About this RNA: A member of the RNA family "bZIP non canonical Hac1/Xbp1 intron" from Soboliphyme baturini, 81 nucleotides long. It is annotated as a small RNA. Lineage of the source: Eukaryota > Protostomia > Ecdysozoa > Soboliphymatidae > Soboliphyme. bZIP intron RNA is a non-canonical intron that was first reported in HAC1 gene in yeast and XBP1 gene in Metazoa. The literature on the family includes a 2018 paper in mSphere by Iracane et al., "Identification of an Exceptionally Long Intron in the HAC1 Gene of Candida parapsilosis". The family's consensus secondary structure was predicted with RNAfold.
RNA sequence: GUCCAGUCAGAACAAAGCUAUUGAAUCUGCAGCAUUCAUUAAUGCGCCUCUGCCGAAGGAGCAAGUUCUGUUCUACUGGAC
Numbered sequence: 001g002u003c004c005a006g007u008c009a010g011a012a013c014a015a016a017g018c019u020a021u022u023g024a025a026u027c028u029g030c031a032g033c034a035u036u037c038a039u040u041a042a043u044g045c046g047c048c049u050c051u052g053c054c055g056a057a058g059g060a061g062c063a064a065g066u067u068c069u070g071u072u073c074u075a076c077u078g079g080a081c
Base pairs, nucleotide, nucleotide: 001081002080003079004078005077006076007075009069010068011067012066013065022038023037024036025035026034045061047059048058049057